[Rfam]
RNA sequence: GGGAGUGGAGGGUGGGCCCGGGACGGGCGCGGACCCGGUAAUCUAACCCUGACUCACAAGAGGCGUAGGCGCCGUGCUUUUGCUCCCCGCGCGCUGUUUUUCUCGCUGACUUUCAGCGUUCGGAAAAGCCCUGUGGCCUAUCGCCAUCCACCAUCCUUUCUGGAACAAACAGACAAAAAAAAAAAUGUCAGCUGCUGGUCCGUUCGCUCCUCCCGGGCCCUGCGGUGGCCGCCAGCCCGCCCUCUCAUCCCCCGCGUCCCGCCUAGAGGCCGCGGUCGGCCCGGGGCUUCUCCGGAGGUGCCCAUUGCCGCCGCGAAGAGUUAGGCUCUGUCAGCCGCGGGCUCUCGGGGGGCCCAGGGCGAGGUUUAGGCCUCGUGGCCGCAGGGACAGCAACGGAGCGGGUCCCCGCGAGCCUGUGCGCGUCCCUGAGCCGUGGGACUUGCACCGGGGACUUUGCUCGGACAAUC
Numbered sequence: 001g002g003g004a005g006u007g008g009a010g011g012g013u014g015g016g017c018c019c020g021g022g023a024c025g026g027g028c029g030c031g032g033a034c035c036c037g038g039u040a041a042u043c044u045a046a047c048c049c050u051g052a053c054u055c056a057c058a059a060g061a062g063g064c065g066u067a068g069g070c071g072c073c074g075u076g077c078u079u080u081u082g083c084u085c086c087c088c089g090c091g092c093g094c095u096g097u098u099u100u101u102c103u104c105g106c107u108g109a110c111u112u113u114c115a116g117c118g119u120u121c122g123g124a125a126a127a128g129c130c131c132u133g134u135g136g137c138c139u140a141u142c143g144c145c146a147u148c149c150a151c152c153a154u155c156c157u158u159u160c161u162g163g164a165a166c167a168a169a170c171a172g173a174c175a176a177a178a179a180a181a182a183a184a185a186u187g188u189c190a191g192c193u194g195c196u197g198g199u200c201c202g203u204u205c206g207c208u209c210c211u212c213c214c215g216g217g218c219c220c221u222g223c224g225g226u227g228g229c230c231g232c233c234a235g236c237c238c239g240c241c242c243u244c245u246c247a248u249c250c251c252c253c254g255c256g257u258c259c260c261g262c263c264u265a266g267a268g269g270c271c272g273c274g275g276u277c278g279g280c281c282c283g284g285g286g287c288u289u290c291u292c293c294g295g296a297g298g299u300g301c302c303c304a305u306u307g308c309c310g311c312c313g314c315g316a317a318g319a320g321u322u323a324g325g326c327u328c329u330g331u332c333a334g335c336c337g338c339g340g341g342c343u344c345u346c347g348g349g350g351g352g353c354c355c356a357g358g359g360c361g362a363g364g365u366u367u368a369g370g371c372c373u374c375g376u377g378g379c380c381g382c383a384g385g386g387a388c389a390g391c392a393a394c395g396g397a398g399c400g401g402g403u404c405c406c407c408g409c410g411a412g413c414c415u416g417u418g419c420g421c422g423u424c425c426c427u428g429a430g431c432c433g434u435g436g437g438a439c440u441u442g443c444a445c446c447g448g449g450g451a452c453u454u455u456g457c458u459c460g461g462a463c464a465a466u467c
Stems, first nucleotide, its partner, number of pairs: 017217007025209005031200002034197001076129005088122002091119006105192006111185003219385007239365003242361001244359003248352007258341005271315005277310004283303003317329004396459004400454007416445005423438004
RNA: Vertebrate telomerase RNA